The record is a 49-nucleotide sequence from Roseobacter sp. HKCCD8822, which matches "SAM/SAH riboswitch aptamer" in Rfam.
[Rfam]
RNA sequence: AAAGCUCCACAACGGCUUCCUGGCGUGGAGAGAAAACACCAAUGGAGCA
Numbered sequence: 001a002a003a004g005c006u007c008c009a010c011a012a013c014g015g016c017u018u019c020c021u022g023g024c025g026u027g028g029a030g031a032g033a034a035a036a037c038a039c040c041a042a043u044g045g046a047g048c049a
Stems, first nucleotide, its partner, number of pairs: 005030006013022002015048003019045002
The base pairs follow the family's consensus structure, which is taken from published work. Taxonomically the source falls in Roseobacter (Bacteria, Pseudomonadati, Pseudomonadota, Alphaproteobacteria). Gene Ontology terms of the family: S-adenosylmethionine metabolic process and regulation of gene expression.